Rfam assigns this 79-nucleotide RNA sequence from Aurantiacibacter spongiae to the family "Makes More Granules Regulator RNA (mmgR)".
It is annotated as a small RNA.
The match comes from Rfam's covariance-model search (59 bits).
RNA sequence: UCCACCUGCCUUUUCAGGCAUCCUCUCCCAAAACUUCCAGGGCCCGGUCGGCGACGACCGGGCCUUUUUUUGUCCCCGG
Dot-bracket structure: .......((((....)))).....................(((((((((......)))))))))...............
The family is grouped with related families in Rfam's "suhB sRNA clan".